[Rfam]
RNA sequence: UCAGGCGGUGAUGACACACUUGCCCUCACUGAGAACCUUGUUCAGUAAUGAGAACCCCAUAAGUACUCAAAACAUCUGAGCUUGA
Numbered sequence: 001u002c003a004g005g006c007g008g009u010g011a012u013g014a015c016a017c018a019c020u021u022g023c024c025c026u027c028a029c030u031g032a033g034a035a036c037c038u039u040g041u042u043c044a045g046u047a048a049u050g051a052g053a054a055c056c057c058c059a060u061a062a063g064u065a066c067u068c069a070a071a072a073c074a075u076c077u078g079a080g081c082u083u084g085a
Base pairs, nucleotide, nucleotide: 001085002084003083004082005081006080